[Rfam]
RNA sequence: AAGAGCUUAGGGCCAAUAAAGACUAAGAGGGUUGACUCAAAAAGAAA
Numbered sequence: 001a002a003g004a005g006c007u008u009a010g011g012g013c014c015a016a017u018a019a020a021g022a023c024u025a026a027g028a029g030g031g032u033u034g035a036c037u038c039a040a041a042a043a044g045a046a047a
Base pairs, nucleotide, nucleotide: 007041008040010038011037012036014034015033016032017031
Dot-bracket structure: ......((.(((.((((.............)))).))).))......